[Rfam]
RNA sequence: GCGCUGUCCGAAGAACCGCUUUCGCAGCUCCCGCACAAGAAGGCACCCGCCCUUCUCCCCUGCAGCUGUGGGGAAAGUCCCCGGAGAUGCAGAACGUGUCCCGCGCCCGCACCGGAAAGCAGCCGCCCCCAAGCACGGCGGCGGGGCGCGGGACGGCCGGACGCUCCUGCUCCCUCGUGGGGCUCGCGUCCAGGGCCAUUCUGCAGCGCGUCGGGCCAGCCGGGACUGCAGCGCGAAGACACGAGUGCUGUGGUACGCCCAGGUCUGUGCUGGAGCGCUACUGUUGCUCAUAGACACAGUUAUGCGGUCGCGGUGCUUGCGCCGUGAACACAAUGGGGCUUACUCUCGGGCAGCG
Numbered sequence: 001g002c003g004c005u006g007u008c009c010g011a012a013g014a015a016c017c018g019c020u021u022u023c024g025c026a027g028c029u030c031c032c033g034c035a036c037a038a039g040a041a042g043g044c045a046c047c048c049g050c051c052c053u054u055c056u057c058c059c060c061u062g063c064a065g066c067u068g069u070g071g072g073g074a075a076a077g078u079c080c081c082c083g084g085a086g087a088u089g090c091a092g093a094a095c096g097u098g099u100c101c102c103g104c105g106c107c108c109g110c111a112c113c114g115g116a117a118a119g120c121a122g123c124c125g126c127c128c129c130c131a132a133g134c135a136c137g138g139c140g141g142c143g144g145g146g147c148g149c150g151g152g153a154c155g156g157c158c159g160g161a162c163g164c165u166c167c168u169g170c171u172c173c174c175u176c177g178u179g180g181g182g183c184u185c186g187c188g189u190c191c192a193g194g195g196c197c198a199u200u201c202u203g204c205a206g207c208g209c210g211u212c213g214g215g216c217c218a219g220c221c222g223g224g225a226c227u228g229c230a231g232c233g234c235g236a237a238g239a240c241a242c243g244a245g246u247g248c249u250g251u252g253g254u255a256c257g258c259c260c261a262g263g264u265c266u267g268u269g270c271u272g273g274a275g276c277g278c279u280a281c282u283g284u285u286g287c288u289c290a291u292a293g294a295c296a297c298a299g300u301u302a303u304g305c306g307g308u309c310g311c312g313g314u315g316c317u318u319g320c321g322c323c324g325u326g327a328a329c330a331c332a333a334u335g336g337g338g339c340u341u342a343c344u345c346u347c348g349g350g351c352a353g354c355g
Stems, first nucleotide, its partner, number of pairs: 002355010015308005022071007039055005044049001075341003079338004089099003206278003211274002214271003222266002231258003241251003310325006